[Rfam]
RNA sequence: GUGCAGGUACGGAGACAUGGUGCCCGGUACGAUCGCCGGCAAGAUUGUGGGCGGAGUCUGCUCACUGAGCGGAGUGCUAGUCAUUGCCUUGCCGGUGCCUGUCAUCGUGUCUAAC
Number, nucleotide and partner (000 for none) at each position: 001g115002u114003g000004c000005a112006g111007g000008u109009a108010c107011g106012g105013a000014g103015a102016c101017a100018u000019g098020g000021u000022g096023c095024c000025c000026g000027g000028u000029a000030c000031g000032a000033u000034c000035g000036c000037c000038g078039g077040c076041a075042a000043g000044a000045u000046u000047g000048u000049g000050g000051g063052c000053g000054g000055a000056g000057u000058c000059u000060g000061c000062u000063c051064a000065c000066u000067g000068a000069g000070c000071g000072g000073a000074g000075u041076g040077c039078u038079a000080g000081u000082c000083a000084u000085u000086g000087c000088c000089u000090u000091g000092c000093c000094g000095g023096u022097g000098c019099c000100u017101g016102u015103c014104a000105u012106c011107g010108u009109g008110u000111c006112u005113a000114a002115c001
Shown here is a 115-nucleotide sequence from Coptotermes formosanus, a member of the family "Potassium channel RNA editing signal". It scores 82 bits against the family's covariance model. The organism belongs to Coptotermes, within Eukaryota.